Rfam assigns this 129-nucleotide RNA from Helianthus annuus to the family "Small nucleolar RNA SNORD14". Rfam links the family to the GO terms nucleolus and RNA processing. U14 small nucleolar RNA (U14 snoRNA) is required for early cleavages of eukaryotic precursor rRNAs. On this family, see Samarsky et al., Nucleic Acids Res 1996: "An essential domain in Saccharomyces cerevisiae U14 snoRNA is absent in vertebrates, but conserved in other yeasts".
Nucleotides: 129
Stems, first nucleotide, its partner, number of pairs: 002128003063089006
Number, partner (000 for none) and nucleotide at each position: 001000u002128a003127u004126c005000g006000a007000u008000g009000a010000u011000g012000a013000a014000a015000g016000a017000u018000g019000a020000a021000a022000g023000g024000c025000u026000u027000g028000u029000u030000u031000c032000u033000c034000a035000u036000g037000a038000a039000c040000a041000u042000u043000c044000g045000c046000a047000g048000u049000g050000g051000c052000c053000g054000c055000c056000u057000g058000a059000u060000u061000g062000a063089a064088c065087u066086u067085u068084c069000g070000c071000c072000u073000u074000c075000g076000c077000c078000a079000g080000g081000c082000u083000u084068g085067a086066g087065a088064g089063u090000u091000c092000a093000u094000g095000u096000u097000g098000c099000u100000c101000u102000u103000u104000c105000c106000u107000u108000c109000c110000u111000u112000c113000c114000u115000u116000g117000g118000a119000u120000g121000u122000c123000u124000g125000a126004g127003a128002u129000c